This 120-nucleotide RNA sequence from Desulforamulus ferrireducens belongs to the Rfam family "Molybdenum/Tungsten riboswitch aptamer (Moco RNA motif)".
On this family, see Regulski et al., Mol Microbiol 2008: "in molybdenum cofactor and tungsten cofactor metabolism".
A search with the family's covariance model found it, with a score of 62 bits.
RNA sequence: UAGAUUCAUUACCUCCGAGCCCUGCAACCUGGGAUGCUAGAUUAUGGUUGCUGUGGCCGAUAGGGUUUACCUGGAAACGGGUAGGCCUCCCGUGUGGAAAGGAUGGUAGGUUUAAUAGCC
Numbered sequence: 001u002a003g004a005u006u007c008a009u010u011a012c013c014u015c016c017g018a019g020c021c022c023u024g025c026a027a028c029c030u031g032g033g034a035u036g037c038u039a040g041a042u043u044a045u046g047g048u049u050g051c052u053g054u055g056g057c058c059g060a061u062a063g064g065g066u067u068u069a070c071c072u073g074g075a076a077a078c079g080g081g082u083a084g085g086c087c088u089c090c091c092g093u094g095u096g097g098a099a100a101g102g103a104u105g106g107u108a109g110g111u112u113u114a115a116u117a118g119c120c
Base pairs, nucleotide, nucleotide: 004113012105014103015102016101019057020056021055022053024051025050026049027048028047029046033043034042035041063088064087065086066085067084068083069082070081071080072079073078089097090096
Rfam 15.1 lists 1,248 matches to the family in 836 species. The base pairs follow the family's consensus structure, which is taken from published work.